[Rfam]
RNA sequence: UGUUCGAGCGGGUAAGUCCUAUAAUGUGCCUCUGGUGCUCCCUUCCAUCGGUUGGCAAUGAGCCAGAGGAAAUAGGCAUUAUAGGGGCCGCUUUUUU
Numbered sequence: 001u002g003u004u005c006g007a008g009c010g011g012g013u014a015a016g017u018c019c020u021a022u023a024a025u026g027u028g029c030c031u032c033u034g035g036u037g038c039u040c041c042c043u044u045c046c047a048u049c050g051g052u053u054g055g056c057a058a059u060g061a062g063c064c065a066g067a068g069g070a071a072a073u074a075g076g077c078a079u080u081a082u083a084g085g086g087g088c089c090g091c092u093u094u095u096u097u
Stems, first nucleotide, its partner, number of pairs: 002096001006092001009090002022081006029075001030068007041055002045051002
RNA: DUF3800-V RNA